A member of the RNA family "Potassium channel RNA editing signal", 114 nucleotides long. Its family is annotated with adenosine to inosine editing in the Gene Ontology. The family's consensus secondary structure is taken from published work. Rfam's curators put it in the seed alignment. For this family Rfam cites "Control of human potassium channel inactivation by editing of a small mRNA hairpin" (Bhalla et al., Nat Struct Mol Biol, 2004).
RNA sequence: GUAGGCUAUGGAGACAUGAGACCCAUCACUGUAGGGGGCAAGAUCGUGGGUUCACUGUGCGCCAUAGCUGGGGUCCUCACCAUUGCCCUGCCUGUCCCCGUCAUCGUCUCCAAC
Numbered sequence: 001g002u003a004g005g006c007u008a009u010g011g012a013g014a015c016a017u018g019a020g021a022c023c024c025a026u027c028a029c030u031g032u033a034g035g036g037g038g039c040a041a042g043a044u045c046g047u048g049g050g051u052u053c054a055c056u057g058u059g060c061g062c063c064a065u066a067g068c069u070g071g072g073g074u075c076c077u078c079a080c081c082a083u084u085g086c087c088c089u090g091c092c093u094g095u096c097c098c099c100g101u102c103a104u105c106g107u108c109u110c111c112a113a114c
Stems, first nucleotide, its partner, number of pairs: 001114002004111002008107004013102003018097001021095002037077002040074001049063003